Description
This 84-nucleotide RNA from Pistricoccus aurantiacus belongs to the Rfam family "Group II catalytic intron D1-D4-1". Rfam links the family to the GO term Group II intron splicing. On this family, see Bonen and Vogel, Trends Genet 2001: "The ins and outs of group II introns". Lineage of the source: Bacteria > Pseudomonadota > Gammaproteobacteria > Halomonadaceae > Pistricoccus. From the family's description: Group II introns are found in rRNA, tRNA and mRNA of organelles in fungi, plants and protists, and also in mRNA in bacteria. The base pairs follow the family's consensus structure.

RNA sequence: GCCUCAUGCCUGAAAGGGCGACGUGGCAACACGGAGCGAGAAGUCAGCAGAGGCCAUAGUAGCUGCCAUCAUGGAGCGAAGGGC
Numbered sequence: 001g002c003c004u005c006a007u008g009c010c011u012g013a014a015a016g017g018g019c020g021a022c023g024u025g026g027c028a029a030c031a032c033g034g035a036g037c038g039a040g041a042a043g044u045c046a047g048c049a050g051a052g053g054c055c056a057u058a059g060u061a062g063c064u065g066c067c068a069u070c071a072u073g074g075a076g077c078g079a080a081g082g083g084c
Base pairs, nucleotide, nucleotide: 001027002026004023007020008019009018010017011016044051045050053084054083055082062077063076064075066074067073068072